Annotation:
The family of this 213-nucleotide RNA sequence from a Caulobacteraceae bacterium is "permuted transfer-messenger RNA". It scores 122 bits against the family's covariance model. By type it is a non-coding RNA gene. Rfam links the family to the GO term RNA catabolic process. NCBI's taxonomy places the organism under Bacteria, Pseudomonadota, Alphaproteobacteria, Caulobacterales, Caulobacteraceae. Rfam describes the family as follows. Bacterial tmRNA, also known as 10Sa RNA or SsrA, is named for its dual tRNA and mRNA-like properties.

RNA sequence: GGAGAUAAACGCGCACGUAAUAAGCGGACUGGACCCGGGUGCGAUUCCCGGCGGCUCCACCACUCUCUCCCGAGUUAUCACGGGAAGCGCGGGGCCGAUCAGCAUCGACAGACGUGUAAAGGUGAUUGCUUUCUCUCGGCUUGACCCACCGUUUCGGGUCUUAAUCUAACUGCGAACGAUAACUUCGCUGAAGAGUUCGCCGUCGCCGCGUAA
Numbered sequence: 001g002g003a004g005a006u007a008a009a010c011g012c013g014c015a016c017g018u019a020a021u022a023a024g025c026g027g028a029c030u031g032g033a034c035c036c037g038g039g040u041g042c043g044a045u046u047c048c049c050g051g052c053g054g055c056u057c058c059a060c061c062a063c064u065c066u067c068u069c070c071c072g073a074g075u076u077a078u079c080a081c082g083g084g085a086a087g088c089g090c091g092g093g094g095c096c097g098a099u100c101a102g103c104a105u106c107g108a109c110a111g112a113c114g115u116g117u118a119a120a121g122g123u124g125a126u127u128g129c130u131u132u133c134u135c136u137c138g139g140c141u142u143g144a145c146c147c148a149c150c151g152u153u154u155c156g157g158g159u160c161u162u163a164a165u166c167u168a169a170c171u172g173c174g175a176a177c178g179a180u181a182a183c184u185u186c187g188c189u190g191a192a193g194a195g196u197u198c199g200c201c202g203u204c205g206c207c208g209c210g211u212a213a
Base pairs, nucleotide, nucleotide: 001136002135003134004133005132014124015123016122025114026113029111030110031109035051036050037049038048039047052097053096054095055094056093057092058091137151138150139149